RNA: Small nucleolar RNA SNORA63
Organism: Sciurus vulgaris
RNA sequence: AAGCAGGACUCAGACUACAAUAAAGCUGUUAAAUGUUGUGUUGUCAUUCCCCCUGCUCAAAAUCAAGCUGUUUCUUACCUAUACCUGUUGGCUCUGCCCCUGUAGUGGCCAGGGGUUCAUGGUCUCAUACAU
Numbered sequence: 001a002a003g004c005a006g007g008a009c010u011c012a013g014a015c016u017a018c019a020a021u022a023a024a025g026c027u028g029u030u031a032a033a034u035g036u037u038g039u040g041u042u043g044u045c046a047u048u049c050c051c052c053c054u055g056c057u058c059a060a061a062a063u064c065a066a067g068c069u070g071u072u073u074c075u076u077a078c079c080u081a082u083a084c085c086u087g088u089u090g091g092c093u094c095u096g097c098c099c100c101u102g103u104a105g106u107g108g109c110c111a112g113g114g115g116u117u118c119a120u121g122g123u124c125u126c127a128u129a130c131a132u
Stems, first nucleotide, its partner, number of pairs: 003056005017044006024037003084113004089108001091106002